[Rfam]
RNA sequence: ACCUAACCCUGAUUUUCAUUAGCUGUGGGUUCUGGUCUUUUGUUCUUCGCCCGCUGUUUUUCUCGCUGACUUCCAGCGGACCAGUAAAGUCCAGACCUGCAGCGGGCCACCGCGCGUUCCCGAGCCUCAAAAACAAACGUCAGCGCAGGAGCUUCAGGUUCGCCGGGAGCUCCGCGGCGUCGGGCCGCCCAGUCCCGUACCCGCCUACAGGCCGCGGCCGGCCUGGGGUCUUAGGACUCCGCUGCCGCCGCGAAGAGCUCGCCUCUGUCAGCCGCGGGGCGCCGGGGGCUGGGGCCAGGCCGGGCGAGCGCCGCGAGGACAGGAAUGGAACUGGUCCCCGUGUUUGGUGUCUUACCUGAGCUGUGGGAAGUGCACCCGGAACUCGGUUCUCACAACC
Numbered sequence: 001a002c003c004u005a006a007c008c009c010u011g012a013u014u015u016u017c018a019u020u021a022g023c024u025g026u027g028g029g030u031u032c033u034g035g036u037c038u039u040u041u042g043u044u045c046u047u048c049g050c051c052c053g054c055u056g057u058u059u060u061u062c063u064c065g066c067u068g069a070c071u072u073c074c075a076g077c078g079g080a081c082c083a084g085u086a087a088a089g090u091c092c093a094g095a096c097c098u099g100c101a102g103c104g105g106g107c108c109a110c111c112g113c114g115c116g117u118u119c120c121c122g123a124g125c126c127u128c129a130a131a132a133a134c135a136a137a138c139g140u141c142a143g144c145g146c147a148g149g150a151g152c153u154u155c156a157g158g159u160u161c162g163c164c165g166g167g168a169g170c171u172c173c174g175c176g177g178c179g180u181c182g183g184g185c186c187g188c189c190c191a192g193u194c195c196c197g198u199a200c201c202c203g204c205c206u207a208c209a210g211g212c213c214g215c216g217g218c219c220g221g222c223c224u225g226g227g228g229u230c231u232u233a234g235g236a237c238u239c240c241g242c243u244g245c246c247g248c249c250g251c252g253a254a255g256a257g258c259u260c261g262c263c264u265c266u267g268u269c270a271g272c273c274g275c276g277g278g279g280c281g282c283c284g285g286g287g288g289c290u291g292g293g294g295c296c297a298g299g300c301c302g303g304g305c306g307a308g309c310g311c312c313g314c315g316a317g318g319a320c321a322g323g324a325a326u327g328g329a330a331c332u333g334g335u336c337c338c339c340g341u342g343u344u345u346g347g348u349g350u351c352u353u354a355c356c357u358g359a360g361c362u363g364u365g366g367g368a369a370g371u372g373c374a375c376c377c378g379g380a381a382c383u384c385g386g387u388u389c390u391c392a393c394a395a396c397c
Stems, first nucleotide, its partner, number of pairs: 037089004049081001051079006065144006071137002171317001173315005183301004187295004193287005200278005213252005219247004225240005254266004328389004333383003337379002347375004353368001355366002
Description: The record is a 397-nucleotide RNA sequence, which matches "Vertebrate telomerase RNA" in Rfam. Telomerase is a ribonucleoprotein reverse transcriptase that synthesises telomeric DNA. Telomerase RNAs differ greatly in sequence and structure between vertebrates, ciliates and yeasts, but they share a 5' pseudoknot structure close to the template sequence. Vertebrate telomerase RNAs have a 3' H/ACA snoRNA-like domain. Rfam classes the family as a non-coding RNA gene. A reference for the family is Chen et al. (2000), "Secondary structure of vertebrate telomerase RNA", Cell.